[Rfam]
RNA: bZIP non canonical Hac1/Xbp1 intron
Organism: Talaromyces rugulosus
RNA sequence: CGAGGCCUCCGAUAUGACACAACAUCCUGCAGCGGUGUUGUGCGACCUGCAGUGUCAGUCGAAGGCCUCG
Numbered sequence: 001c002g003a004g005g006c007c008u009c010c011g012a013u014a015u016g017a018c019a020c021a022a023c024a025u026c027c028u029g030c031a032g033c034g035g036u037g038u039u040g041u042g043c044g045a046c047c048u049g050c051a052g053u054g055u056c057a058g059u060c061g062a063a064g065g066c067c068u069c070g
Stems, first nucleotide, its partner, number of pairs: 001070007010061004021039006044056003